Shown here is a 132-nucleotide RNA sequence from Otolemur garnettii, a member of the family "Small nucleolar RNA SNORA14". Gene Ontology terms of the family: RNA processing and nucleolus. The sequence is in the family's curated seed alignment. Rfam describes the family as follows. ACA14 is a member of the H/ACA class of snoRNA that guide the sites of modification of uridines to pseudouridines. The family's RNA type in Rfam is H/ACA-box small nucleolar RNA. Taxonomically the source falls in Otolemur (Eukaryota, Craniata, Amniota, Strepsirrhini).
RNA sequence: AUGCAUUCUUAAAUUUCCUUGGUAGCUUUACUCUGUGCUUCCAUGAUAUGAGUGAAUGCAUAGAAAUUGCAGAGGAAUCCAAAGGACUGUGCUUCACCUAUGGCUCAGUGUUAUUUUAUACCUGUGACAUCA
Number, nucleotide and partner (000 for none) at each position: 001a000002u000003g059004c058005a057006u056007u000008c052009u051010u050011a049012a000013a000014u000015u000016u000017c000018c045019u000020u043021g042022g041023u000024a039025g038026c037027u000028u000029u000030a000031c000032u000033c000034u000035g000036u000037g026038c025039u024040u000041c022042c021043a020044u000045g018046a000047u000048a000049u011050g010051a009052g008053u000054g000055a000056a006057u005058g004059c003060a000061u000062a000063g131064a130065a000066a000067u127068u126069g125070c124071a123072g122073a000074g000075g000076a000077a000078u000079c000080c000081a000082a000083a112084g111085g000086a109087c108088u107089g106090u000091g104092c103093u000094u000095c000096a000097c000098c000099u000100a000101u000102g000103g092104c091105u000106c089107a088108g087109u086110g000111u084112u083113a000114u000115u000116u000117u000118a000119u000120a000121c000122c072123u071124g070125u069126g068127a067128c000129a000130u064131c063132a000